Annotation
A member of the RNA family "Small nucleolar RNA SNORD35" from Camelus dromedarius, 91 nucleotides long. Rfam's curators write: U35 is a C/D box snoRNA located in intron 6 of ribosomal protein L13A and intron 3 of ribosomal protein S11 in humans and at homologous positions in mouse and chicken ribosomal protein genes. U35 guides the methylation of 2'-O-ribose sites in 28S rRNA. On this family, see Nicoloso et al., J Mol Biol 1996: "Intron-encoded, antisense small nucleolar RNAs: the characterization of nine novel species points to their direct role as guides for the 2'-O-ribose methylation of rRNAs". It scores 75 bits against the family's covariance model.
[Rfam]
RNA sequence: GGCAGAUGAUGUCUACUGUUUUCACGAUGGUCUUCAGAUGCCCACCACGGGCAUUGCUGAGAAAGUUGCUUGGUACAGAUGAUGCCAGAAG
Dot-bracket structure: ((((..............................................................................)))).....
Numbered sequence: 001g002g003c004a005g006a007u008g009a010u011g012u013c014u015a016c017u018g019u020u021u022u023c024a025c026g027a028u029g030g031u032c033u034u035c036a037g038a039u040g041c042c043c044a045c046c047a048c049g050g051g052c053a054u055u056g057c058u059g060a061g062a063a064a065g066u067u068g069c070u071u072g073g074u075a076c077a078g079a080u081g082a083u084g085c086c087a088g089a090a091g
Stems, first nucleotide, its partner, number of pairs: 001086004